This 68-nucleotide RNA sequence from Ixodes scapularis belongs to the Rfam family "mir-375 microRNA precursor family". Taxonomically the source falls in Ixodes (Eukaryota, Protostomia, Ecdysozoa, Panarthropoda). The family has 47 seed sequences and 824 matches in Rfam 15.1. The sequence is in the family's curated seed alignment. The family's consensus secondary structure was predicted with RNAalifold.
RNA sequence: GCUGACUCGAGCUGCCCGUGCAAAACUGGAACCACUGCGUUGUUUUGUUCGUUCGGCUCGAGUUAGAA
Number, nucleotide and partner (000 for none) at each position: 001g000002c066003u065004g000005a063006c062007u061008c060009g059010a058011g057012c056013u055014g000015c000016c000017c051018g050019u000020g048021c047022a046023a045024a000025a043026c042027u000028g000029g000030a000031a000032c000033c000034a000035c000036u000037g000038c000039g000040u000041u000042g026043u025044u000045u023046u022047g021048u020049u000050c018051g017052u000053u000054c000055g013056g012057c011058u010059c009060g008061a007062g006063u005064u000065a003066g002067a000068a000